[Rfam]
RNA sequence: CCGGACGAGGGGCGCUGCAGCAGGGGCUCCAGCCGCUGCCAGGCUCGUCCGCGGCGUGCGACAUUUAACCGCGCCCAUUCGCA
Numbered sequence: 001c002c003g004g005a006c007g008a009g010g011g012g013c014g015c016u017g018c019a020g021c022a023g024g025g026g027c028u029c030c031a032g033c034c035g036c037u038g039c040c041a042g043g044c045u046c047g048u049c050c051g052c053g054g055c056g057u058g059c060g061a062c063a064u065u066u067a068a069c070c071g072c073g074c075c076c077a078u079u080c081g082c083a
Stems, first nucleotide, its partner, number of pairs: 002051007021038003025034002
Dot-bracket structure: .(((((((............(((.((......)).)))......)))))))................................

Notes
Rfam assigns this 83-nucleotide RNA from Halopseudomonas pachastrellae to the family "SAH (S-adenosyl-L-homocysteine) riboswitch aptamer". The family's consensus secondary structure is taken from published work. The match comes from Rfam's covariance-model search (54 bits). Its family is annotated with regulation of gene expression and S-adenosylhomocysteine metabolic process in the Gene Ontology.